Rfam assigns this 97-nucleotide RNA from Erwinia mallotivora to the family "t44 RNA". Taxonomically the source falls in Erwinia (Bacteria, Pseudomonadati, Enterobacterales, Erwiniaceae). It is annotated as a small RNA. Pairs were carried over by alignment from the consensus structure, which was predicted with LocARNA. From the family's description: This family consists of a number of bacterial RNA genes of between 135 and 170 bases in length. The t44 gene has been identified in several species of enteric bacteria but homologs have also been identified in Pseudomonas and Coxiella species. The t44 gene is found between the map and rpsB genes in all species in the full alignment apart from Shigella flexneri.
RNA sequence: AUUCUCCCGUGUAUAUAACACACAUGUAUCGACACAUACGCCGGGGUGCCUUGAACGUAGUGAGAGGUCGGUUGUAUGGGAUACAUGGAGGCUUAAC
Numbered sequence: 001a002u003u004c005u006c007c008c009g010u011g012u013a014u015a016u017a018a019c020a021c022a023c024a025u026g027u028a029u030c031g032a033c034a035c036a037u038a039c040g041c042c043g044g045g046g047u048g049c050c051u052u053g054a055a056c057g058u059a060g061u062g063a064g065a066g067g068u069c070g071g072u073u074g075u076a077u078g079g080g081a082u083a084c085a086u087g088g089a090g091g092c093u094u095a096a097c
Stems, first nucleotide, its partner, number of pairs: 023087008035078005040072004048068005